[Rfam]
This 69-nucleotide sequence from Clupea harengus belongs to the Rfam family "mir-24 microRNA precursor family". For this family Rfam cites "Identification of novel genes coding for small expressed RNAs" (Lagos-Quintana et al., Science, 2001). Lineage of the source: Eukaryota > Teleostei > Clupeocephala > Clupeidae > Clupea. The family's consensus secondary structure was predicted with RNAalifold. Its family is annotated with miRNA-mediated post-transcriptional gene silencing and RISC complex in the Gene Ontology.
RNA sequence: GUCUCCUGUGCCUACUGAGCUGAUUACAGUUCUGCCCAAACCACUGGCUCAGUUCAGCAGGAACAGGAG
Numbered sequence: 001g002u003c004u005c006c007u008g009u010g011c012c013u014a015c016u017g018a019g020c021u022g023a024u025u026a027c028a029g030u031u032c033u034g035c036c037c038a039a040a041c042c043a044c045u046g047g048c049u050c051a052g053u054u055c056a057g058c059a060g061g062a063a064c065a066g067g068a069g
Base pairs, nucleotide, nucleotide: 003069004068005067006066008064009063011061012060013059015057016056017055018054019053020052021051022050023049027046028045029044030043